This 131-nucleotide RNA from Pteropus alecto belongs to the Rfam family "Small nucleolar RNA SNORA63". From the family's description: E3 belongs to the H/ACA class of snoRNAs and is involved in the processing of eukaryotic pre-rRNA and has regions of complementarity to 18S rRNA. E3 is encoded in introns in the gene for protein synthesis initiation factor 4AII. Rfam classes the family as an H/ACA-box small nucleolar RNA. Its family is annotated with nucleolus and RNA processing in the Gene Ontology. On this family, see Mishra and Eliceiri, Proc Natl Acad Sci U S A 1997: "Three small nucleolar RNAs that are involved in ribosomal RNA precursor processing". NCBI's taxonomy places the organism under Eukaryota, Craniata, Theria, Boreoeutheria, Pteropus.
RNA sequence: AAGCAGGAUUUAGACUACAAUAUAGCUGUUAAGUGCUGUGUUGUCGUUCCCCCUGCUCAAAAUAAAGCUGAUUCUUUACUAUACCUGUCUGCAGUGGUCUGUAGCAGCCAGGGACGCUUGGUUUCAUACAU
Dot-bracket structure: ..(((((.........((((((((((........)))))))))).......)))))...........................((((.((((...........)))).))))...................